Rfam assigns this 72-nucleotide RNA from Arenimonas metalli to the family "tRNA". Rfam's curators write: Transfer RNA (tRNA) molecules are approximately 80 nucleotides in length. Their secondary structure includes four short double-helical elements and three loops (D, anti-codon, and T loops). Further hydrogen bonds mediate the characteristic L-shaped molecular structure. tRNAs have two regions of fundamental functional importance: the anti-codon, which is responsible for specific mRNA codon recognition, and the 3' end, to which the tRNAs corresponding amino acid is attached (by aminoacyl-tRNA synthetases). tRNAs cope with the degeneracy of the genetic code in two manners: having more than one tRNA (with a specific anti-codon) for a particular amino acid; and 'wobble' base-pairing, i.e. permitting non-standard base-pairing at the 3rd anti-codon position. The organism belongs to Arenimonas metalli, within Bacteria. The family's RNA type in Rfam is transfer RNA. Pairs were carried over by alignment from the consensus structure, which is taken from published work.

RNA sequence: GGGCGAUUAGCUCAGCGGUAGAGCAUUACCUUGACAUGGUAGGGGUCACAGGUUCGAACCCUGUAUCGCCCA
Numbered sequence: 001g002g003g004c005g006a007u008u009a010g011c012u013c014a015g016c017g018g019u020a021g022a023g024c025a026u027u028a029c030c031u032u033g034a035c036a037u038g039g040u041a042g043g044g045g046u047c048a049c050a051g052g053u054u055c056g057a058a059c060c061c062u063g064u065a066u067c068g069c070c071c072a
Stems, first nucleotide, its partner, number of pairs: 001071007010024004026042005048064005